[Rfam]
RNA sequence: GGGGUUUGCAGCAGUAAGUUACCGCGCUCUUUGAUGUCUCCACCGAUGUGAUAUGGUAGUCCGCAGUUCGCAAAAGAAACAAAUGGCCCACGUUCAAACAUAAUAAUUUGGGCAUCUUCGCUCAAACGACGAGCGCGAGCGGCAGCAGACGCGCCUCCUGCAACACCAC
Numbered sequence: 001g002g003g004g005u006u007u008g009c010a011g012c013a014g015u016a017a018g019u020u021a022c023c024g025c026g027c028u029c030u031u032u033g034a035u036g037u038c039u040c041c042a043c044c045g046a047u048g049u050g051a052u053a054u055g056g057u058a059g060u061c062c063g064c065a066g067u068u069c070g071c072a073a074a075a076g077a078a079a080c081a082a083a084u085g086g087c088c089c090a091c092g093u094u095c096a097a098a099c100a101u102a103a104u105a106a107u108u109u110g111g112g113c114a115u116c117u118u119c120g121c122u123c124a125a126a127c128g129a130c131g132a133g134c135g136c137g138a139g140c141g142g143c144a145g146c147a148g149a150c151g152c153g154c155c156u157c158c159u160g161c162a163a164c165a166c167c168a169c
Stems, first nucleotide, its partner, number of pairs: 001167002004164003008161003011025002014022003032056001034054005040048001061070001076154001084147002088142001092140004099133001101131001104128001107125002110123004
Dot-bracket structure: ((.(((.(((((.(((...))).))......(.(((((.(.......).))))).)....(........).....(.......((..(...((((...(.(..(..((.((((......))))))..)..).)...)))).)...))......)....)))))).))..
Vibrio RNA AS7: a 169-nucleotide RNA from Vibrio xiamenensis. Rfam describes the family as follows. Identified by direct cloning an parallel sequencing experiments with 5S/tRNA depletion. The source organism's lineage runs through Bacteria, Pseudomonadati, Gammaproteobacteria, Vibrionales and Vibrio. On this family, see Liu et al., Nucleic Acids Res 2009: "Experimental discovery of sRNAs in Vibrio cholerae by direct cloning, 5S/tRNA depletion and parallel sequencing".